The family of this 98-nucleotide RNA sequence from Clostridium sp. CAG:265 is "Purine riboswitch aptamer".
NCBI's taxonomy places the organism under Bacteria, Bacillati, Eubacteriales, Clostridiaceae, Clostridium.
The family's consensus secondary structure is taken from published work.
A search with the family's covariance model found it, with a score of 71 bits.
Rfam describes the family as follows. Riboswitches are metabolite binding domains within certain messenger RNAs that serve as precision sensors for their corresponding targets. Allosteric rearrangement of mRNA structure is mediated by ligand binding, and this results in modulation of gene expression. A class of riboswitches that selectively recognises guanine and becomes saturated at concentrations as low as 5 nM. In Bacillus subtilis, this mRNA motif is located on at least five separate transcriptional units that together encode 17 genes that are mostly involved in purine transport and purine nucleotide biosynthesis. It has also been shown that some members of this family are specific for adenine instead. Hence this family are termed purine riboswitches.

RNA sequence: GCAACAAACAUUAUGAAAACUUAUAUAUACCCUGAAUAUGGCAGGGCGUUUCUACCGGAAACCAUUAAUUUCCGACUAUAAGUAAGAUUAAAUGUCUU
Numbered sequence: 001g002c003a004a005c006a007a008a009c010a011u012u013a014u015g016a017a018a019a020c021u022u023a024u025a026u027a028u029a030c031c032c033u034g035a036a037u038a039u040g041g042c043a044g045g046g047c048g049u050u051u052c053u054a055c056c057g058g059a060a061a062c063c064a065u066u067a068a069u070u071u072c073c074g075a076c077u078a079u080a081a082g083u084a085a086g087a088u089u090a091a092a093u094g095u096c097u098u
Stems, first nucleotide, its partner, number of pairs: 019083007030046005056074006